RNA sequence: GUGCAUUCUUAAACCCCCUUGGUAGCUUCUCUCUAAGUGCUGCCAAGAUAUGAAUGAAUGCUAUAGAAAUUGCAGGGCAGUCCAAAGGGCUGUGCUUCUUCUGUAGCUCAGCUUUAUUUCAUACCUGCGACAUCU
Numbered sequence: 001g002u003g004c005a006u007u008c009u010u011a012a013a014c015c016c017c018c019u020u021g022g023u024a025g026c027u028u029c030u031c032u033c034u035a036a037g038u039g040c041u042g043c044c045a046a047g048a049u050a051u052g053a054a055u056g057a058a059u060g061c062u063a064u065a066g067a068a069a070u071u072g073c074a075g076g077g078c079a080g081u082c083c084a085a086a087g088g089g090c091u092g093u094g095c096u097u098c099u100u101c102u103g104u105a106g107c108u109c110a111g112c113u114u115u116a117u118u119u120c121a122u123a124c125c126u127g128c129g130a131c132a133u134c135u
Stems, first nucleotide, its partner, number of pairs: 003061004009053003018047005024041003065135003070130007086115007094107002098103001
RNA: Small nucleolar RNA SNORA14